[Rfam]
RNA sequence: UGGUUGGCGGGAGGCUCUGACACGCGGUCCGAACCCGGCCGCCGGGACCGCGCCGAGCCACUGGCGAGACCGACCCGCUCGCAU
Numbered sequence: 001u002g003g004u005u006g007g008c009g010g011g012a013g014g015c016u017c018u019g020a021c022a023c024g025c026g027g028u029c030c031g032a033a034c035c036c037g038g039c040c041g042c043c044g045g046g047a048c049c050g051c052g053c054c055g056a057g058c059c060a061c062u063g064g065c066g067a068g069a070c071c072g073a074c075c076c077g078c079u080c081g082c083a084u
Stems, first nucleotide, its partner, number of pairs: 003082002006079006013059003023052007037071002040066004

Record summary: The family of this 84-nucleotide RNA sequence is "c-di-GMP-II-GAG riboswitch aptamer". Pairs were carried over by alignment from the consensus structure, which is taken from published work. It is one of the family's seed sequences. Its Rfam clan is "c-di-GMP_II riboswitch clan".